RNA: Guanidine-I riboswitch aptamer
RNA sequence: AAAAAUGCUGUCUAGGGUUCCGCUGCUUAUCUACUAUAAGCAGGUCCGGUCCAAGAGACAGCGGUACAGACAUAUUAGAAAACGGUCUGUAUACACGGAGGGACAAAAGCCUGGGAGAU
Numbered sequence: 001a002a003a004a005a006u007g008c009u010g011u012c013u014a015g016g017g018u019u020c021c022g023c024u025g026c027u028u029a030u031c032u033a034c035u036a037u038a039a040g041c042a043g044g045u046c047c048g049g050u051c052c053a054a055g056a057g058a059c060a061g062c063g064g065u066a067c068a069g070a071c072a073u074a075u076u077a078g079a080a081a082a083c084g085g086u087c088u089g090u091a092u093a094c095a096c097g098g099a100g101g102g103a104c105a106a107a108a109g110c111c112u113g114g115g116a117g118a119u
Stems, first nucleotide, its partner, number of pairs: 007062006015052002020049002022046001023043008064092008094114001096117001100112003